[Rfam]
RNA sequence: GGCCUUGCCUCUUGGCAAAAAACAUAACGUCAGAAAGGAGCUGGUAGGAACGCCCGUUGUAUGGGCUACCGAACGCCCCGAAUAAGAAAAGCAAAGCA
Numbered sequence: 001g002g003c004c005u006u007g008c009c010u011c012u013u014g015g016c017a018a019a020a021a022a023c024a025u026a027a028c029g030u031c032a033g034a035a036a037g038g039a040g041c042u043g044g045u046a047g048g049a050a051c052g053c054c055c056g057u058u059g060u061a062u063g064g065g066c067u068a069c070c071g072a073a074c075g076c077c078c079c080g081a082a083u084a085a086g087a088a089a090a091g092c093a094a095a096g097c098a
Base pairs, nucleotide, nucleotide: 006017007016008015009014040076041075047070052066053065054064055063056062057061
RNA: RT-17 RNA